[Rfam]
RNA sequence: UCUCUCCUGUGUUCUAUGGCUUUCUAUUCCUAUGUGACGUUUUCCAGUAUCUCAUGUAGGGUUUAAAGCCAUUGGAUACUGAGUGA
Number, nucleotide and partner (000 for none) at each position: 001u000002c085003u000004c083005u082006c081007c000008u000009g079010u078011g077012u076013u075014c074015u000016a072017u071018g070019g069020c068021u067022u066023u065024c000025u000026a063027u000028u061029c060030c059031u058032a057033u056034g055035u054036g053037a052038c000039g000040u000041u000042u000043u000044c000045c000046a000047g000048u000049a000050u000051c000052u037053c036054a035055u034056g033057u032058a031059g030060g029061g028062u000063u026064u000065a023066a022067a021068g020069c019070c018071a017072u016073u000074g014075g013076a012077u011078a010079c009080u000081g006082a005083g004084u000085g002086a000
mir-135 microRNA precursor family: an 86-nucleotide RNA from Denticeps clupeoides. The family's consensus secondary structure was predicted with PFOLD. The organism belongs to Denticeps, within Eukaryota. The match comes from Rfam's covariance-model search (71 bits). On this family, see Lagos-Quintana et al., Curr Biol 2002: "Identification of tissue-specific microRNAs from mouse". Rfam links the family to the GO terms RISC complex and gene silencing by miRNA.